[Rfam]
RNA: MIR2617 microRNA precursor family
Organism: Medicago truncatula
RNA sequence: AAGCAGUGUGACAUGCCCGUUUGUUGUUGAACUCUGAUUAUUUUAUUUAUUAUUUAAUUGUUUGGGAUAACGGGGUGUUACAAACCU
Numbered sequence: 001a002a003g004c005a006g007u008g009u010g011a012c013a014u015g016c017c018c019g020u021u022u023g024u025u026g027u028u029g030a031a032c033u034c035u036g037a038u039u040a041u042u043u044u045a046u047u048u049a050u051u052a053u054u055u056a057a058u059u060g061u062u063u064g065g066g067a068u069a070a071c072g073g074g075g076u077g078u079u080a081c082a083a084a085c086c087u
Stems, first nucleotide, its partner, number of pairs: 002087002007082008016074006
Dot-bracket structure: .((...((((((((.((((((...............................................))))))))))))))...))